[Rfam]
RNA sequence: GCAGAGGAAUCCGAAAAUCUUAAGAGUAGGAA
Numbered sequence: 001g002c003a004g005a006g007g008a009a010u011c012c013g014a015a016a017a018u019c020u021u022a023a024g025a026g027u028a029g030g031a032a
Stems, first nucleotide, its partner, number of pairs: 003020003010031003
RNA: DUF805b RNA
Organism: Dysgonomonas sp. Marseille-P4677